[Rfam]
RNA: MIR2118 microRNA precursor family
Organism: Zizania palustris
RNA sequence: UCUGGGAAGAGGAAGAAUGAGAGGGUCCAAGAGCAUUGGGAAUGGAAACAUGGAGGAAGGCAUGAGCUCUAUGUUUCCUCUAGAGGAGAUUCAGAAUUUGUGUUUUCCUGAUGCCUUCCAUUCCUAUUGUUUUUGGGUGCUCCUUCCCCUUCCUUCCUGAC
Numbered sequence: 001u002c003u004g005g006g007a008a009g010a011g012g013a014a015g016a017a018u019g020a021g022a023g024g025g026u027c028c029a030a031g032a033g034c035a036u037u038g039g040g041a042a043u044g045g046a047a048a049c050a051u052g053g054a055g056g057a058a059g060g061c062a063u064g065a066g067c068u069c070u071a072u073g074u075u076u077c078c079u080c081u082a083g084a085g086g087a088g089a090u091u092c093a094g095a096a097u098u099u100g101u102g103u104u105u106u107c108c109u110g111a112u113g114c115c116u117u118c119c120a121u122u123c124c125u126a127u128u129g130u131u132u133u134u135g136g137g138u139g140c141u142c143c144u145u146c147c148c149c150u151u152c153c154u155u156c157c158u159g160a161c
Stems, first nucleotide, its partner, number of pairs: 009152004015146003021142003026137010037126011049113003053109001055108007